This 78-nucleotide sequence from Hermetia illucens belongs to the Rfam family "drz-agam-1 ribozyme". It scores 38 bits against the family's covariance model. Pairs were carried over by alignment from the consensus structure, which is taken from published work. Rfam links the family to the GO term catalytic activity.
RNA sequence: AGUACCAAACCCUAUUUUCACCUCCACGUGGUGACAGCUGGGAGCUCUUUCUUAACAAAAAACUGCAGACGAAGAAGG
Numbered sequence: 001a002g003u004a005c006c007a008a009a010c011c012c013u014a015u016u017u018u019c020a021c022c023u024c025c026a027c028g029u030g031g032u033g034a035c036a037g038c039u040g041g042g043a044g045c046u047c048u049u050u051c052u053u054a055a056c057a058a059a060a061a062a063c064u065g066c067a068g069a070c071g072a073a074g075a076a077g078g
Stems, first nucleotide, its partner, number of pairs: 011078003015074004020032003044066002048062003052058001